RNA: mir-193 microRNA precursor family
RNA sequence: GCUGGGUCUUUGCGGGCGAGAUGAGAGGUUCCUGUCUUCAACUGGCCUACAAAGUCCCAGUUCUCGGC
Numbered sequence: 001g002c003u004g005g006g007u008c009u010u011u012g013c014g015g016g017c018g019a020g021a022u023g024a025g026a027g028g029u030u031c032c033u034g035u036c037u038u039c040a041a042c043u044g045g046c047c048u049a050c051a052a053a054g055u056c057c058c059a060g061u062u063c064u065c066g067g068c
Stems, first nucleotide, its partner, number of pairs: 001061001003059004008054005014048004019043002022040002